[Rfam]
RNA sequence: AUUGCUUCUUGGCCUUUUGACUAAGAUCAAAUGUAGUAUCUGUUCUUAUCAGAACACCAGUAUCCCUAACCACGGGAGGGCGCUGGUUAGCAUUUCCUGUUUUAAUAAGGGGAGGAUUUUUUUUUCUCCCAGGUGGAAUCUGGCCUGGUUUGCUAGGCUUGUUACCGAUUGUAGGGAAAAUCUCCCUAAGUGAUAAUGCCUUU
Numbered sequence: 001a002u003u004g005c006u007u008c009u010u011g012g013c014c015u016u017u018u019g020a021c022u023a024a025g026a027u028c029a030a031a032u033g034u035a036g037u038a039u040c041u042g043u044u045c046u047u048a049u050c051a052g053a054a055c056a057c058c059a060g061u062a063u064c065c066c067u068a069a070c071c072a073c074g075g076g077a078g079g080g081c082g083c084u085g086g087u088u089a090g091c092a093u094u095u096c097c098u099g100u101u102u103u104a105a106u107a108a109g110g111g112g113a114g115g116a117u118u119u120u121u122u123u124u125u126c127u128c129c130c131a132g133g134u135g136g137a138a139u140c141u142g143g144c145c146u147g148g149u150u151u152g153c154u155a156g157g158c159u160u161g162u163u164a165c166c167g168a169u170u171g172u173a174g175g176g177a178a179a180a181u182c183u184c185c186c187u188a189a190g191u192g193a194u195a196a197u198g199c200c201u202u203u
Base pairs, nucleotide, nucleotide: 007026008025009024011022012021014019048087049086050085051084052083089101090100091099092098132166133165134164135163136162138160145156146155147154148153169196170195171194172188173187174186175185176184177183
RNA: U2 spliceosomal RNA
Organism: Aquarana catesbeiana